The record is an 87-nucleotide sequence from Faecalibacterium prausnitzii, which matches "S10-Clostridia ribosomal protein leader" in Rfam. The literature on the family includes a 2020 paper in BMC Microbiol by Eckert and Weinberg, "Discovery of 20 novel ribosomal leader candidates in bacteria and archaea". It scores 39 bits against the family's covariance model. Pairs were carried over by alignment from the consensus structure, which is taken from published work.
RNA sequence: GAUAUGCGUAGAUGCGGGAGGUUGUCAUCCGGCGAUAGCUGAGAUGGGUUAUUUCCGCGGAGUAUGUCCGAUCUUAGAACCGGGCGA
Numbered sequence: 001g002a003u004a005u006g007c008g009u010a011g012a013u014g015c016g017g018g019a020g021g022u023u024g025u026c027a028u029c030c031g032g033c034g035a036u037a038g039c040u041g042a043g044a045u046g047g048g049u050u051a052u053u054u055c056c057g058c059g060g061a062g063u064a065u066g067u068c069c070g071a072u073c074u075u076a077g078a079a080c081c082g083g084g085c086g087a
Stems, first nucleotide, its partner, number of pairs: 014058003018055004025047005065086006072079001